[Rfam]
RNA sequence: GAAGCAUCCGAGCCUAAGCCCGUCAGGGCGCGGGGGACCCAAGUUGUUUGGGGGUGAAGCUGCGCGGCAAACGCGCGGCCGGGAGAACUCUCUUUGAUCCCGAACCCGACAGCUAACCUCGUAGGCUUACCAAAGGGAGGAA
Numbered sequence: 001g002a003a004g005c006a007u008c009c010g011a012g013c014c015u016a017a018g019c020c021c022g023u024c025a026g027g028g029c030g031c032g033g034g035g036g037a038c039c040c041a042a043g044u045u046g047u048u049u050g051g052g053g054g055u056g057a058a059g060c061u062g063c064g065c066g067g068c069a070a071a072c073g074c075g076c077g078g079c080c081g082g083g084a085g086a087a088c089u090c091u092c093u094u095u096g097a098u099c100c101c102g103a104a105c106c107c108g109a110c111a112g113c114u115a116a117c118c119u120c121g122u123a124g125g126c127u128u129a130c131c132a133a134a135g136g137g138a139g140g141a142a
Stems, first nucleotide, its partner, number of pairs: 011127004018029003030122006040051001052107003060078004081101004